[Rfam]
RNA sequence: UUGGUUUAUCCUAAGUCAAAUUUGACAAACUUUGAUCAAGUUUAUAGAAAAAUAUAACAACAACUAUACUACCAAACAUAUGUACUAUCAAAACAUAUUACAUGGUGGAUUCAACGAAACAAAUUUGGUAUUAUAGAUGUUGUUAUAUUUUUCUAUAAAAAUUUGGUCAAAGUUGGAUAAGUUUGACUUAGGACAAACCAAA
Numbered sequence: 001u002u003g004g005u006u007u008a009u010c011c012u013a014a015g016u017c018a019a020a021u022u023u024g025a026c027a028a029a030c031u032u033u034g035a036u037c038a039a040g041u042u043u044a045u046a047g048a049a050a051a052a053u054a055u056a057a058c059a060a061c062a063a064c065u066a067u068a069c070u071a072c073c074a075a076a077c078a079u080a081u082g083u084a085c086u087a088u089c090a091a092a093a094c095a096u097a098u099u100a101c102a103u104g105g106u107g108g109a110u111u112c113a114a115c116g117a118a119a120c121a122a123a124u125u126u127g128g129u130a131u132u133a134u135a136g137a138u139g140u141u142g143u144u145a146u147a148u149u150u151u152u153c154u155a156u157a158a159a160a161a162u163u164u165g166g167u168c169a170a171a172g173u174u175g176g177a178u179a180a181g182u183u184u185g186a187c188u189u190a191g192g193a194c195a196a197a198c199c200a201a202a
Base pairs, nucleotide, nucleotide: 005197006196007195009193011191012190013189014188015187016186017185018184019183020182021181022180023179024178026176031171032170033169034168035167045155046154047153048152049151050150051149052148055145056144057143059141060140061139062138064136065135066134067133068132072128073127074126075125076124
Shown here is a 202-nucleotide RNA sequence from Dichanthelium oligosanthes, a member of the family "MIR1435 microRNA precursor family". The source organism's lineage runs through Eukaryota, Euphyllophyta, Liliopsida, commelinids and Dichanthelium. The family's consensus secondary structure was predicted with RNAalifold.